Rfam assigns this 79-nucleotide RNA sequence from Rhynchospora breviuscula to the family "Small nucleolar RNA SNORD18". Its family is annotated with RNA processing and nucleolus in the Gene Ontology. NCBI's taxonomy places the organism under Eukaryota, Streptophytina, commelinids, Poales, Rhynchospora. The literature on the family includes a 1993 paper in Nucleic Acids Res by Prislei et al., "Two different snoRNAs are encoded in introns of amphibian and human L1 ribosomal protein genes". The base pairs follow the family's consensus structure, which was predicted with PFOLD.
RNA sequence: UUGAGAUGAUGAUUGACAAAUCUUGGUCUGUGUUUCUGAUACAGAAAUGACAGAAAACUUACUGAUUUUCUCUGAUCAA
Numbered sequence: 001u002u003g004a005g006a007u008g009a010u011g012a013u014u015g016a017c018a019a020a021u022c023u024u025g026g027u028c029u030g031u032g033u034u035u036c037u038g039a040u041a042c043a044g045a046a047a048u049g050a051c052a053g054a055a056a057a058c059u060u061a062c063u064g065a066u067u068u069u070c071u072c073u074g075a076u077c078a079a
Base pairs, nucleotide, nucleotide: 001079002078003077004076